S-element: a 74-nucleotide RNA from Mesorhizobium australicum. A search with the family's covariance model found it, with a score of 59 bits. Taxonomically the source falls in Mesorhizobium (Bacteria, Alphaproteobacteria, Hyphomicrobiales, Phyllobacteriaceae). The literature on the family includes a 2004 paper in Mol Microbiol by Venkova-Canova et al., "Two discrete elements are required for the replication of a repABC plasmid: an antisense RNA and a stem-loop structure". This family represents a group of S-elements from p42d and related plasmids.

[Rfam]
RNA sequence: CGUCAAGAGUCUUUGUACUCUGCGCCGUUUCGGCGAGCGGAUUUCUUUUGCCUAACAAAAGGUAAAGGGAAAUG
Numbered sequence: 001c002g003u004c005a006a007g008a009g010u011c012u013u014u015g016u017a018c019u020c021u022g023c024g025c026c027g028u029u030u031c032g033g034c035g036a037g038c039g040g041a042u043u044u045c046u047u048u049u050g051c052c053u054a055a056c057a058a059a060a061g062g063u064a065a066a067g068g069g070a071a072a073u074g
Stems, first nucleotide, its partner, number of pairs: 010069005024063003028060003032056001035053001037051005